[Rfam]
Description
Rfam assigns this 185-nucleotide RNA sequence from Bacillaceae bacterium SAS-127 to the family "Lysine riboswitch aptamer". From the family's description: Riboswitches are metabolite binding domains within certain messenger RNAs that serve as precision sensors for their corresponding targets. Allosteric rearrangement of mRNA structure is mediated by ligand binding, and this results in modulation of gene expression. This family includes riboswitches that sense lysine in a number of genes involved in lysine metabolism, including lysC. The source organism's lineage runs through Bacteria, Bacillati, Bacilli, Caryophanales and Bacillaceae.
RNA sequence: CGGUGGGGUAGAGGAUGCAAAAUUAAUGAGUAGUUUGCGUGAGGAUGACAACGAAGAUCGCAAGUGAAAGGUGAGUUUGCCGAAGUAAGUAAGAUGCGUCAACGUCUUUCGUACUGGGGUUAUCUUGAAGAAGGAUAACACUCUCAUUGUAAAGAAAUUGUUUGCAAUGGGGAGCUACACGAUGG
Numbered sequence: 001c002g003g004u005g006g007g008g009u010a011g012a013g014g015a016u017g018c019a020a021a022a023u024u025a026a027u028g029a030g031u032a033g034u035u036u037g038c039g040u041g042a043g044g045a046u047g048a049c050a051a052c053g054a055a056g057a058u059c060g061c062a063a064g065u066g067a068a069a070g071g072u073g074a075g076u077u078u079g080c081c082g083a084a085g086u087a088a089g090u091a092a093g094a095u096g097c098g099u100c101a102a103c104g105u106c107u108u109u110c111g112u113a114c115u116g117g118g119g120u121u122a123u124c125u126u127g128a129a130g131a132a133g134g135a136u137a138a139c140a141c142u143c144u145c146a147u148u149g150u151a152a153a154g155a156a157a158u159u160g161u162u163u164g165c166a167a168u169g170g171g172g173a174g175c176u177a178c179a180c181g182a183u184g185g
Stems, first nucleotide, its partner, number of pairs: 006180001008178004017080005023074003033065007084115004089110001091108005116142002119139008144170010